RNA sequence: AGCUAAUAUUUUACGAUUAAGAAACAACUGUCUUUUGUACAGAUCAUAUAUUAAUUU
Numbered sequence: 001a002g003c004u005a006a007u008a009u010u011u012u013a014c015g016a017u018u019a020a021g022a023a024a025c026a027a028c029u030g031u032c033u034u035u036u037g038u039a040c041a042g043a044u045c046a047u048a049u050a051u052u053a054a055u056u057u
Base pairs, nucleotide, nucleotide: 018037019036020035021034022033024031025030

Shown here is a 57-nucleotide RNA sequence from Orobanche densiflora, a member of the family "Plastid-rps18 3UTR RNA". Rfam describes the family as follows. Plastid rps18 is a non-coding RNA (ncRNA) present in plastids. It was identified as a short stem-loop motif in the 3 prime untranslate region (3UTR) of rps18 gene. The sequence is in the family's curated seed alignment. On this family, see Richter et al., Plant Commun 2023: "Retrograde signaling in plants: A critical review focusing on the GUN pathway and beyond".